[Rfam]
RNA sequence: ACAUUUGCGAGAACCUUUUGAAUCACUCAAGUAAUGGAGUGAUUCAAAAGGUUCUCAA
Numbered sequence: 001a002c003a004u005u006u007g008c009g010a011g012a013a014c015c016u017u018u019u020g021a022a023u024c025a026c027u028c029a030a031g032u033a034a035u036g037g038a039g040u041g042a043u044u045c046a047a048a049a050g051g052u053u054c055u056c057a058a
Stems, first nucleotide, its partner, number of pairs: 009056016029040001